Overview:
Shown here is a 31-nucleotide RNA sequence from Alligator sinensis, a member of the family "Iron response element II". Rfam describes the family as follows. IRE, TFRC, SLC40A1, SDHB, SLC11A2, CDC42BPA, ACO2, ALAS2_H.SAPIENS, CDC14A, EPAS1, ALAS2, qoxD, Hao1, NDUFS1, transferrin, Aconitate. Rfam links the family to the GO term response to iron ion. The family's consensus secondary structure is taken from published work. On this family, see Koeller et al., Proc Natl Acad Sci U S A 1989: "A cytosolic protein binds to structural elements within the iron regulatory region of the transferrin receptor mRNA". The source organism's lineage runs through Eukaryota, Bilateria, Vertebrata, Dipnotetrapodomorpha and Alligator.
[Rfam]
RNA sequence: GUAUUUUCAUUUACAGUGCUUAAUAAAAUAU
Numbered sequence: 001g002u003a004u005u006u007u008c009a010u011u012u013a014c015a016g017u018g019c020u021u022a023a024u025a026a027a028a029u030a031u
Stems, first nucleotide, its partner, number of pairs: 001031007009024003013020001014018001